A member of the RNA family "tRNA" from Saccharolobus solfataricus, 75 nucleotides long. The family's RNA type in Rfam is transfer RNA. The organism belongs to Saccharolobus, within Archaea.
[Rfam]
RNA sequence: GGGCCCGUCGUCUAGCCUGGUUAGGACGCUGCCCUGACGCGGCAGAAAUCCUGGGUUCAAGUCCCAGCGGGCCCA
Numbered sequence: 001g002g003g004c005c006c007g008u009c010g011u012c013u014a015g016c017c018u019g020g021u022u023a024g025g026a027c028g029c030u031g032c033c034c035u036g037a038c039g040c041g042g043c044a045g046a047a048a049u050c051c052u053g054g055g056u057u058c059a060a061g062u063c064c065c066a067g068c069g070g071g072c073c074c075a
Stems, first nucleotide, its partner, number of pairs: 001074007010027004029045005051067005